[Rfam]
RNA sequence: CCUCUCGGGGAGUAGUCCGCCGUCGCUUCGACGGCCCGUACGUCAACACACUUGGCCCGUCGGCCAUGGCGUACGGAGGAUCGCCCAGCGAUCC
Numbered sequence: 001c002c003u004c005u006c007g008g009g010g011a012g013u014a015g016u017c018c019g020c021c022g023u024c025g026c027u028u029c030g031a032c033g034g035c036c037c038g039u040a041c042g043u044c045a046a047c048a049c050a051c052u053u054g055g056c057c058c059g060u061c062g063g064c065c066a067u068g069g070c071g072u073a074c075g076g077a078g079g080a081u082c083g084c085c086c087a088g089c090g091a092u093c094c
Stems, first nucleotide, its partner, number of pairs: 020034003036076010053066005078094006
RNA: Manganese Mn2+ riboswitch aptamer (yybP-ykoY)
Organism: Lysobacter sp. TY2-98